[Rfam]
Nucleotides: 256
Stems, first nucleotide, its partner, number of pairs: 002256008012247001015209006023053004032047006058242003062239004078089004092103004107179003115173010133155003142149002211227002214224003
Number, partner (000 for none) and nucleotide at each position: 001000a002256g003255u004254c005253a006252u007251u008250g009249g010000a011000c012247a013000u014000g015209a016208a017207g018206u019205g020204a021000a022000u023053g024052g025051g026050u027000c028000a029000a030000a031000u032047g033046g034045a035044c036043u037042u038000g039000u040000c041000u042037a043036a044035g045034u046033u047032c048000c049000g050026a051025c052024c053023c054000a055000g056000g057000a058242a059241a060240g061000u062239c063238c064237c065236c066000g067000g068000g069000c070000c071000a072000c073000u074000a075000a076000u077000c078089c079088g080087c081086a082000g083000a084000g085000a086081u087080g088079c089078g090000g091000c092103c093102u094101c095100g096000g097000u098000a099000a100095c101094g102093a103092g104000a105000g106000a107179a108178u109177c110000g111000u112000a113000c114000g115173g116172g117171u118170c119169g120168g121167a122166g123165a124164g125000g126000c127000a128000c129000a130000a131000u132000c133155a134154g135153c136000u137000g138000a139000g140000a141000c142149g143148c144000a145000u146000g147000u148143g149142u150000g151000g152000a153135g154134c155133u156000u157000u158000c159000g160000u161000g162000g163000u164124u165123u166122c167121u168120c169119u170118g171117a172116c173115c174000g175000a176000c177109g178108a179107u180000a181000a182000c183000a184000u185000g186000g187000c188000c189000g190000u191000g192000a193000a194000a195000c196000a197000c198000a199000g200000u201000u202000a203000u204020u205019c206018a207017c208016u209015u210000g211227g212226u213000c214224u215223u216222u217000g218000a219000c220000c221000g222216g223215g224214a225000c226212a227211c228000a229000a230000c231000u232000g233000a234000a235000c236065g237064g238063g239062g240060c241059u242058u243000a244000c245000u246000g247012u248000u249009c250008c251007a252006a253005u254004g255003a256002c
The family of this 256-nucleotide sequence from Arabis alpina is "RNase MRP". It scores 82 bits against the family's covariance model. NCBI's taxonomy places the organism under Eukaryota, Tracheophyta, Mesangiospermae, Brassicaceae, Arabis.